[Rfam]
RNA sequence: AUAAUCAAAGUGCUUAAUCUGAUCUCCAGGAGACUCAGAACGGGGGAUUUCAUGUGGGGUGAAUCAUGGUUAGACCAUGUAGGGCUUACACCUUCUGCCCGAAUCCGUCAACUAACCUCGUAAGCUAUGAAAGGUGGACCA
Numbered sequence: 001a002u003a004a005u006c007a008a009a010g011u012g013c014u015u016a017a018u019c020u021g022a023u024c025u026c027c028a029g030g031a032g033a034c035u036c037a038g039a040a041c042g043g044g045g046g047a048u049u050u051c052a053u054g055u056g057g058g059g060u061g062a063a064u065c066a067u068g069g070u071u072a073g074a075c076c077a078u079g080u081a082g083g084g085c086u087u088a089c090a091c092c093u094u095c096u097g098c099c100c101g102a103a104u105c106c107g108u109c110a111a112c113u114a115a116c117c118u119c120g121u122a123a124g125c126u127a128u129g130a131a132a133g134g135u136g137g138a139c140c141a
Base pairs, nucleotide, nucleotide: 012125013124014123018039019038020037021036022035040121041120042119043118044117045116050056057106058105059104065079066078067077068076082100083099084098085097
c-di-AMP riboswitch aptamer (ydaO/yuaA leader): a 141-nucleotide RNA sequence from Desulfosporosinus sp. HMP52. From the family's description: This family represents a conserved RNA structure found upstream of the ydaO and yuaA genes in Bacillus subtilis and related genes in other bacteria. The source organism's lineage runs through Bacteria, Bacillati, Bacillota, Eubacteriales and Desulfosporosinus.